[Rfam]
Shown here is a 101-nucleotide RNA sequence from Candidatus Chloroploca asiatica, a member of the family "Bacterial small signal recognition particle RNA". Taxonomically the source falls in Candidatus Chloroploca (Bacteria, Chloroflexota, Chloroflexia, Chloroflexineae). By type it is a non-coding RNA gene. The match comes from Rfam's covariance-model search (52 bits).

RNA sequence: CUCUGGCACUGACAAACGGCAGAUACGUGCUAAACCCCGCCAGGGCCGAAAGGCAGCAACGGUAGGUGCGUUCCUCUGGGUGUUUGGAGGUGCCAAAUCUU
Numbered sequence: 001c002u003c004u005g006g007c008a009c010u011g012a013c014a015a016a017c018g019g020c021a022g023a024u025a026c027g028u029g030c031u032a033a034a035c036c037c038c039g040c041c042a043g044g045g046c047c048g049a050a051a052g053g054c055a056g057c058a059a060c061g062g063u064a065g066g067u068g069c070g071u072u073c074c075u076c077u078g079g080g081u082g083u084u085u086g087g088a089g090g091u092g093c094c095a096a097a098u099c100u101u
Base pairs, nucleotide, nucleotide: 004095005094006093007092008091013086014085015084016083017080020078021077022076023075026070027069028068029067030066031065037062038061039060045054046053047052